[Rfam]
The family of this 77-nucleotide RNA sequence from Crocodylus porosus is "Mammalian CPEB3 ribozyme". Its family is annotated with RNA nuclease activity in the Gene Ontology. About the family: The mammalian CPEB3 ribozyme is a self cleaving RNA located in the second intron of the CPEB3 gene which belongs to a family of genes regulating messenger RNA polyadenylation. The base pairs follow the family's consensus structure, which is taken from published work.
RNA sequence: GAUGACAAGUUUGAGGCUGCAAUAGAAACGCUUAUGGUGUGGCUCUAUCAGAUUCCAGUGAAUCUGCAAAUUCUGCU
Numbered sequence: 001g002a003u004g005a006c007a008a009g010u011u012u013g014a015g016g017c018u019g020c021a022a023u024a025g026a027a028a029c030g031c032u033u034a035u036g037g038u039g040u041g042g043c044u045c046u047a048u049c050a051g052a053u054u055c056c057a058g059u060g061a062a063u064c065u066g067c068a069a070a071u072u073c074u075g076c077u
Stems, first nucleotide, its partner, number of pairs: 013045002016043003021077001023075005028040003049066007